[Rfam]
This 63-nucleotide sequence from Propithecus coquereli belongs to the Rfam family "U7 small nuclear RNA". The base pairs follow the family's consensus structure, which was predicted with PFOLD. On this family, see Spycher et al., Nucleic Acids Res 1994: "3' end processing of mouse histone pre-mRNA: evidence for additional base-pairing between U7 snRNA and pre-mRNA". A search with the family's covariance model found it, with a score of 61 bits.

RNA sequence: AGCAGUUACAGCUCUUUUAGAAUUUGUCUAGCAGGUUUUUUUGGUCUUCGCCAGAAGACCCAA
Numbered sequence: 001a002g003c004a005g006u007u008a009c010a011g012c013u014c015u016u017u018u019a020g021a022a023u024u025u026g027u028c029u030a031g032c033a034g035g036u037u038u039u040u041u042u043g044g045u046c047u048u049c050g051c052c053a054g055a056a057g058a059c060c061c062a063a
Base pairs, nucleotide, nucleotide: 034060035059036058037057038056040055041054042053043052044051045050